[Rfam]
RNA sequence: CUGCAGCCAAUUAAGCCAAUCAUGUUCUUUUCCUCAUGGGGGUCCUGGCGCCCAAUGGCUGCAGACAGCAGCCUCCUUGGUAGUGAAUGCAGCCUGUGGCUCAUGUGUGUUGCCCAAAGGGACAAGGAGACAGCU
Numbered sequence: 001c002u003g004c005a006g007c008c009a010a011u012u013a014a015g016c017c018a019a020u021c022a023u024g025u026u027c028u029u030u031u032c033c034u035c036a037u038g039g040g041g042g043u044c045c046u047g048g049c050g051c052c053c054a055a056u057g058g059c060u061g062c063a064g065a066c067a068g069c070a071g072c073c074u075c076c077u078u079g080g081u082a083g084u085g086a087a088u089g090c091a092g093c094c095u096g097u098g099g100c101u102c103a104u105g106u107g108u109g110u111u112g113c114c115c116a117a118a119g120g121g122a123c124a125a126g127g128a129g130a131c132a133g134c135u
Base pairs, nucleotide, nucleotide: 002054003053020048021047022046025042026041027040028039080123081122090112091111092110093109095107

The family of this 135-nucleotide sequence from Camelus bactrianus is "Small nucleolar RNA SNORA70". Rfam classes the family as an H/ACA-box small nucleolar RNA. The source organism's lineage runs through Eukaryota, Sarcopterygii, Amniota, Camelidae and Camelus. Gene Ontology terms of the family: nucleolus and RNA processing. About the family: snoRNA U70 seems to be exclusive to mammals and is a member of the H/ACA class of snoRNA which contain H (ANANNA) and ACA box motifs. H/ACA box snoRNAs are involved in the conversion of uridines to pseudouridines (5-ribosyluracil) a constituent of structural RNAs (transfer, ribosomal, small nuclear, and small nucleolar).